[Rfam]
RNA sequence: CCUCCCCCGAUUUGGCACGACCACUGCAUUACCUUUUACACCAUACAUAAAGCCCGGCCUUCAACGACGAAGGGUGUGCUUCCCGAGAGAACGGGACCAGGACAAAGGCGUCCUCGCUAGGCAACUAGCGGGACGCC
Numbered sequence: 001c002c003u004c005c006c007c008c009g010a011u012u013u014g015g016c017a018c019g020a021c022c023a024c025u026g027c028a029u030u031a032c033c034u035u036u037u038a039c040a041c042c043a044u045a046c047a048u049a050a051a052g053c054c055c056g057g058c059c060u061u062c063a064a065c066g067a068c069g070a071a072g073g074g075u076g077u078g079c080u081u082c083c084c085g086a087g088a089g090a091a092c093g094g095g096a097c098c099a100g101g102a103c104a105a106a107g108g109c110g111u112c113c114u115c116g117c118u119a120g121g122c123a124a125c126u127a128g129c130g131g132g133a134c135g136c137c
Stems, first nucleotide, its partner, number of pairs: 012105003015027003052079002055076002058073002061070002081096005107137007115130006